[Rfam]
RNA sequence: GUGUGAAAUACCCCAGUCCUGGGGUGUGAAAUAUCCCUGUCCUGGGAUGUGAAAUACCCCAGUCCUGGGGUGUGAAAUAUCCC
Numbered sequence: 001g002u003g004u005g006a007a008a009u010a011c012c013c014c015a016g017u018c019c020u021g022g023g024g025u026g027u028g029a030a031a032u033a034u035c036c037c038u039g040u041c042c043u044g045g046g047a048u049g050u051g052a053a054a055u056a057c058c059c060c061a062g063u064c065c066u067g068g069g070g071u072g073u074g075a076a077a078u079a080u081c082c083c
Base pairs, nucleotide, nucleotide: 008027009026010025011024012023013022014021015020031050032049033048034047035046036045054073055072056071057070058069059068060067

Background:
The record is an 83-nucleotide sequence from Aphelocoma coerulescens, which matches "Gut-1 RNA" in Rfam. The family's consensus secondary structure is taken from published work. Lineage of the source: Eukaryota > Euteleostomi > Tetrapoda > Archosauria > Aphelocoma. The family has 38 seed sequences and 51 matches in Rfam 15.1. It is annotated as a small RNA.